mir-574 microRNA precursor family: an 81-nucleotide RNA sequence from Cnephaeus nilssonii.
RNA sequence: AGGCCCAGAGAGAGAGGCAGUGUCUGAUCUGUAGCCUCCGUGGCAUCUGUUGAUCAGCUGUUGCCUGUCUCUUUCUCUCUG
Numbered sequence: 001a002g003g004c005c006c007a008g009a010g011a012g013a014g015a016g017g018c019a020g021u022g023u024c025u026g027a028u029c030u031g032u033a034g035c036c037u038c039c040g041u042g043g044c045a046u047c048u049g050u051u052g053a054u055c056a057g058c059u060g061u062u063g064c065c066u067g068u069c070u071c072u073u074u075c076u077c078u079c080u081g
Stems, first nucleotide, its partner, number of pairs: 008073006015066006022059001024057006032049003

Lineage of the source: Eukaryota > Chordata > Craniata > Gnathostomata > Cnephaeus.